[Rfam]
Rfam assigns this 94-nucleotide sequence from Anabas testudineus to the family "let-7 microRNA precursor family".
The literature on the family includes a 2018 paper in Cell by Liu et al., "Cryo-EM Structure of Human Dicer and Its Complexes with a Pre-miRNA Substrate".
About the family: This family represents the microRNAs (miRNA) let-7 and mir-98. let-7 was identified from a study of developmental timing in C. elegans, and was later shown to be part of a much larger class of non-coding RNAs termed miRNAs.
RNA sequence: CUGUGGUGAGGUAGUAAGUUGUGUUGUUGUGGGGUGUGGGAUAUUGCAGCCCCUAUUUUGGAGAUACAACUAUACAUCUUACUGCCUUCCACAG
Numbered sequence: 001c002u003g004u005g006g007u008g009a010g011g012u013a014g015u016a017a018g019u020u021g022u023g024u025u026g027u028u029g030u031g032g033g034g035u036g037u038g039g040g041a042u043a044u045u046g047c048a049g050c051c052c053c054u055a056u057u058u059u060g061g062a063g064a065u066a067c068a069a070c071u072a073u074a075c076a077u078c079u080u081a082c083u084g085c086c087u088u089c090c091a092c093a094g
Base pairs, nucleotide, nucleotide: 001094002093003092004091005090006089008088009087010086011085012084013083014082015081016080017079018078020076021075022074023073024072026070027069032052033051034050035049057064